[Rfam]
RNA sequence: CCCUUCUCAAUGAGCUCCUUCCUGCCAACAACUCCGUGGCAGCCUAUGGAUUCGCACGAGAAGAAUAUUAACUGCUCAGUAUUGGCACUCUCACAAUGGUCUCCAUCGAUUGUGUGAGUCUGUGCUGUUCUACAAAU
Numbered sequence: 001c002c003c004u005u006c007u008c009a010a011u012g013a014g015c016u017c018c019u020u021c022c023u024g025c026c027a028a029c030a031a032c033u034c035c036g037u038g039g040c041a042g043c044c045u046a047u048g049g050a051u052u053c054g055c056a057c058g059a060g061a062a063g064a065a066u067a068u069u070a071a072c073u074g075c076u077c078a079g080u081a082u083u084g085g086c087a088c089u090c091u092c093a094c095a096a097u098g099g100u101c102u103c104c105a106u107c108g109a110u111u112g113u114g115u116g117a118g119u120c121u122g123u124g125c126u127g128u129u130c131u132a133c134a135a136a137u
Base pairs, nucleotide, nucleotide: 003063004062005061006060007059008058014055015054016050017049018048022042023041024040025039026038074130077127078126079125094108096106097105098104099103
RNA: Small nucleolar RNA SNORA75
Organism: Nyctiprogne leucopyga